[Rfam]
RNA: mir-184 microRNA precursor family
Organism: Cynoglossus semilaevis
Nucleotides: 081
Stems, first nucleotide, its partner, number of pairs: 012070009022060006030052002
Number, partner (000 for none) and nucleotide at each position: 001000u002000u003000g004000a005000g006000c007000a008000c009000g010000u011000c012070u013069u014068c015067u016066u017065a018064u019063c020062a021000c022060u023059u024058u025057u026056c027055c028000u029000g030052c031051c032000c033000a034000g035000c036000u037000g038000u039000c040000g041000a042000c043000u044000c045000u046000g047000u048000g049000u050000u051031g052030g053000a054000c055027g056026g057025a058024g059023a060022a061000c062020u063019g064018a065017u066016a067015a068014g069013a070012g071000g072000a073000c074000g075000u076000g077000u078000c079000u080000g081000g